[Rfam]
RNA sequence: GCAAAACGGGUAAGUCCUAUACGGCCAGCUCCCUUCGAAUCCUCCAGGGCUUGAUCGCAGCAAAGGUAGUUGGUUGUAGCGGCGCGAUAUAGAUAGCUUACCCACCC
Numbered sequence: 001g002c003a004a005a006a007c008g009g010g011u012a013a014g015u016c017c018u019a020u021a022c023g024g025c026c027a028g029c030u031c032c033c034u035u036c037g038a039a040u041c042c043u044c045c046a047g048g049g050c051u052u053g054a055u056c057g058c059a060g061c062a063a064a065g066g067u068a069g070u071u072g073g074u075u076g077u078a079g080c081g082g083c084g085c086g087a088u089a090u091a092g093a094u095a096g097c098u099u100a101c102c103c104a105c106c107c
Stems, first nucleotide, its partner, number of pairs: 008103008017092005022086002024083002
Shown here is a 107-nucleotide sequence from Bacteroides xylanisolvens, a member of the family "Bacteroidales small SRP". It is one of the family's seed sequences. A reference for the family is Ryan et al. (2020), "A high-resolution transcriptome map identifies small RNA regulation of metabolism in the gut microbe Bacteroides thetaiotaomicron", Nat Commun.